[Rfam]
RNA sequence: GUGCAGGAUCUACUUACAGUGUAGCUGUGAAGUGCUGUACUGUCUUUGCCCCCUGCUUAAAAUAAAGCUGUACCAUCCCAACUCUGUCUGCCGUGGUGCUGUAGCAGGCAGGGAGGUAUGGUGUCAGACAU
Numbered sequence: 001g002u003g004c005a006g007g008a009u010c011u012a013c014u015u016a017c018a019g020u021g022u023a024g025c026u027g028u029g030a031a032g033u034g035c036u037g038u039a040c041u042g043u044c045u046u047u048g049c050c051c052c053c054u055g056c057u058u059a060a061a062a063u064a065a066a067g068c069u070g071u072a073c074c075a076u077c078c079c080a081a082c083u084c085u086g087u088c089u090g091c092c093g094u095g096g097u098g099c100u101g102u103a104g105c106a107g108g109c110a111g112g113g114a115g116g117u118a119u120g121g122u123g124u125c126a127g128a129c130a131u
Stems, first nucleotide, its partner, number of pairs: 003056005016043010083112004088107004
Dot-bracket structure: ..(((((........((((((((((........))))))))))........)))))..........................((((.((((............)))).))))...................
Overview
Small nucleolar RNA SNORA63: a 131-nucleotide sequence from Orycteropus afer. E3 belongs to the H/ACA class of snoRNAs and is involved in the processing of eukaryotic pre-rRNA and has regions of complementarity to 18S rRNA. E3 is encoded in introns in the gene for protein synthesis initiation factor 4AII. The match comes from Rfam's covariance-model search (95 bits). Taxonomically the source falls in Orycteropus afer (Eukaryota, Chordata, Eutheria, Tubulidentata). Rfam links the family to the GO terms nucleolus and RNA processing.